Shown here is a 61-nucleotide RNA sequence from Toxoplasma gondii, a member of the family "U7 small nuclear RNA". Taxonomically the source falls in Toxoplasma (Eukaryota, Alveolata, Conoidasida, Eimeriorina). Animal histone pre-mRNAs are spliced by a different mechanism than nuclear pre-mRNAs and self-splicing introns. This processing involves the U7 snRNP, which contains only one RNA species: U7. The 5' end of U7 RNA is thought to base-pair to a conserved spacer element downstream of the cleavage site in histone pre-mRNA. This family contains a number of annotated U7 pseudogenes.
RNA sequence: AGCUAAUACAGCUUUUAGAAUUUUGUCUAGCAGGUUUUCUGAAUUUGGUUGGAAAACCUAU
Numbered sequence: 001a002g003c004u005a006a007u008a009c010a011g012c013u014u015u016u017a018g019a020a021u022u023u024u025g026u027c028u029a030g031c032a033g034g035u036u037u038u039c040u041g042a043a044u045u046u047g048g049u050u051g052g053a054a055a056a057c058c059u060a061u
Base pairs, nucleotide, nucleotide: 033058034057035056036055037054038053039052040051041050042049